The record is a 140-nucleotide RNA from Halanaerobacter jeridensis, which matches "Lysine riboswitch aptamer" in Rfam.
Its family is annotated with lysine biosynthetic process in the Gene Ontology.

RNA sequence: GACUAAGAUAGAGGAGCAGAAUUCAAUAGUAAUUUUUAAUGAAAGGGAAGACUGCCGAAACUGCAAAGCUUAUUGCUUUGCAGUUGGUUCUAUAAUUAAUAGUUAUAGAACUUUCACCUAUGUGAAGAGCUAUCUCCAAA
Dot-bracket structure: .....((((((....((((..(((.......(((...)))......)))..))))...(((((((((((.....)))))))))))(((((((((((.....))))))))))).((((....))))....)))))).....
Numbered sequence: 001g002a003c004u005a006a007g008a009u010a011g012a013g014g015a016g017c018a019g020a021a022u023u024c025a026a027u028a029g030u031a032a033u034u035u036u037u038a039a040u041g042a043a044a045g046g047g048a049a050g051a052c053u054g055c056c057g058a059a060a061c062u063g064c065a066a067a068g069c070u071u072a073u074u075g076c077u078u079u080g081c082a083g084u085u086g087g088u089u090c091u092a093u094a095a096u097u098a099a100u101a102g103u104u105a106u107a108g109a110a111c112u113u114u115c116a117c118c119u120a121u122g123u124g125a126a127g128a129g130c131u132a133u134c135u136c137c138a139a140a
Stems, first nucleotide, its partner, number of pairs: 006135006016055004022049003032040003059085011086112011114125004